The family of this 127-nucleotide RNA from Chlorocebus sabaeus is "Small nucleolar RNA ACA64". The match comes from Rfam's covariance-model search (110 bits). The family's consensus secondary structure was predicted with WAR. By type it is an H/ACA-box small nucleolar RNA. The family has 30 seed sequences and 9,537 matches in Rfam 15.1. For this family Rfam cites "A computational screen for mammalian pseudouridylation guide H/ACA RNAs" (Schattner et al., RNA, 2006). Taxonomically the source falls in Chlorocebus (Eukaryota, Euteleostomi, Catarrhini, Cercopithecinae).
Nucleotides: 127
Base pairs, nucleotide, nucleotide: 005052007050008049009048010047013044014043015042016041021036022035023034024033067120069118070117071116072115073114078108079107080106081105086099087098088097
Number, partner (000 for none) and nucleotide at each position: 001000g002000u003000u004000g005052g006000a007050u008049g009048a010047a011000a012000a013044u014043c015042a016041u017000c018000c019000u020000g021036g022035g023034c024033u025000u026000u027000g028000c029000c030000a031000g032000u033024g034023g035022c036021c037000a038000c039000a040000a041016g042015u043014g044013a045000g046000a047010u048009u049008c050007a051000g052005u053000g054000c055000c056000c057000a058000g059000a060000g061000c062000u063000u064000c065000u066000a067120g068000g069118g070117g071116c072115c073114u074000c075000a076000g077000c078108u079107c080106a081105c082000c083000a084000u085000g086099c087098a088097c089000u090000g091000c092000c093000c094000u095000g096000u097088g098087u099086g100000u101000g102000g103000c104000a105081g106080u107079g108078a109000a110000a111000c112000c113000c114073a115072g116071g117070c118069c119000c120067u121000g122000a123000c124000a125000g126000g127000c